[Rfam]
RNA sequence: GGAAACAAGCAGAAGCACCCGCUUCUCACCUGAUCGACGCCGUAGGGCUGUUAACAGGUUCAUGACAAAACAAAUGUUGUGAGUGAGACGUGUGGGUGUAUUGUACCCACACGUUUUUUGUUGU
Numbered sequence: 001g002g003a004a005a006c007a008a009g010c011a012g013a014a015g016c017a018c019c020c021g022c023u024u025c026u027c028a029c030c031u032g033a034u035c036g037a038c039g040c041c042g043u044a045g046g047g048c049u050g051u052u053a054a055c056a057g058g059u060u061c062a063u064g065a066c067a068a069a070a071c072a073a074a075u076g077u078u079g080u081g082a083g084u085g086a087g088a089c090g091u092g093u094g095g096g097u098g099u100a101u102u103g104u105a106c107c108c109a110c111a112c113g114u115u116u117u118u119u120g121u122u123g124u
Stems, first nucleotide, its partner, number of pairs: 011026006028059003036052003039048002091111009
The family of this 124-nucleotide RNA from Anoxybacillus flavithermus is "Ribosomal protein L20 leader". It is annotated as a cis-regulatory leader. The organism belongs to Anoxybacillus, within Bacteria. The literature on the family includes a 1994 paper in Prog Nucleic Acid Res Mol Biol by Zengel and Lindahl, "Diverse mechanisms for regulating ribosomal protein synthesis in Escherichia coli".